[Rfam]
Notes: The family of this 89-nucleotide RNA sequence from Daucus carota is "Small nucleolar RNA Z102/R77". It is annotated as a C/D-box small nucleolar RNA. For this family Rfam cites "The high diversity of snoRNAs in plants: identification and comparative study of 120 snoRNA genes from Oryza sativa" (Chen et al., Nucleic Acids Res, 2003). A search with the family's covariance model found it, with a score of 74 bits. Rfam links the family to the GO terms RNA processing and nucleolus. The organism belongs to Daucus carota, within Eukaryota. Clan: SNORD44 clan. Pairs were carried over by alignment from the consensus structure, which was predicted with PFOLD.
RNA sequence: AUUGGAAGUGAUGAGUAGACUAUAUUGUUUCCCUAUUGGUUUGAUCACCGAUAUGAUGGUGCAAUUGUAUUAGCUCUAUCUGAUCCAUU
Numbered sequence: 001a002u003u004g005g006a007a008g009u010g011a012u013g014a015g016u017a018g019a020c021u022a023u024a025u026u027g028u029u030u031c032c033c034u035a036u037u038g039g040u041u042u043g044a045u046c047a048c049c050g051a052u053a054u055g056a057u058g059g060u061g062c063a064a065u066u067g068u069a070u071u072a073g074c075u076c077u078a079u080c081u082g083a084u085c086c087a088u089u
Base pairs, nucleotide, nucleotide: 003087004086005085043062046061047060048059049058